[Rfam]
RNA sequence: GUCUAUACUGCCGAUGAUGGAUCCUUUGUUGAACUGAUUAAUUGUGAUUUCAUUCAACAAUUCGUCACUACCACUGAGGCAGUAUUGCA
Numbered sequence: 001g002u003c004u005a006u007a008c009u010g011c012c013g014a015u016g017a018u019g020g021a022u023c024c025u026u027u028g029u030u031g032a033a034c035u036g037a038u039u040a041a042u043u044g045u046g047a048u049u050u051c052a053u054u055c056a057a058c059a060a061u062u063c064g065u066c067a068c069u070a071c072c073a074c075u076g077a078g079g080c081a082g083u084a085u086u087g088c089a
Stems, first nucleotide, its partner, number of pairs: 003087001005085008
Record summary: Shown here is an 89-nucleotide RNA sequence from Xenopus laevis, a member of the family "Small nucleolar RNA SNORD70". By type it is a C/D-box small nucleolar RNA. Pairs were carried over by alignment from the consensus structure. snoRNA HBII-234 belongs to the C/D family of snoRNAs. It is the human orthologue of the mouse MBII-234 and is predicted to guide 2'O-ribose methylation of the small 18S rRNA on position A512. It is hosted, together with HBII-95, by the core C/D box snoRNA protein encoding gene NOP5/NOP58. Gene Ontology terms of the family: RNA processing and nucleolus. It scores 74 bits against the family's covariance model. On this family, see Huttenhofer et al., EMBO J 2001: "RNomics: an experimental approach that identifies 201 candidates for novel, small, non-messenger RNAs in mouse".